[Rfam]
A member of the RNA family "c-di-AMP riboswitch aptamer (ydaO/yuaA leader)" from Bacillus sp. 7884-1, 141 nucleotides long. It scores 76 bits against the family's covariance model. Gene Ontology terms of the family: regulation of gene expression and cyclic-di-AMP binding. Taxonomically the source falls in Bacillus (Bacteria, Bacillati, Caryophanales, Bacillaceae).

RNA sequence: UAAAUAUUUCGGCCAAAACCCAUCAUUCUGGGUACGGAGGAACCAAUUUAUUGGGGUUAAUUCUACUAUUGUAGAAGGGAUGAGAAUUUCUUUCGCCAUUCUACCCGUCAGCUAACUUCGUCGGCUAAAGCGAAGGAGGUC
Numbered sequence: 001u002a003a004a005u006a007u008u009u010c011g012g013c014c015a016a017a018a019c020c021c022a023u024c025a026u027u028c029u030g031g032g033u034a035c036g037g038a039g040g041a042a043c044c045a046a047u048u049u050a051u052u053g054g055g056g057u058u059a060a061u062u063c064u065a066c067u068a069u070u071g072u073a074g075a076a077g078g079g080a081u082g083a084g085a086a087u088u089u090c091u092u093u094c095g096c097c098a099u100u101c102u103a104c105c106c107g108u109c110a111g112c113u114a115a116c117u118u119c120g121u122c123g124g125c126u127a128a129a130g131c132g133a134a135g136g137a138g139g140u141c
Base pairs, nucleotide, nucleotide: 011126012125013124014123018033019032020031021030022029034121035120036119037118038117039116044053045052054106055105056104062075063074064073065072078101079100080099081098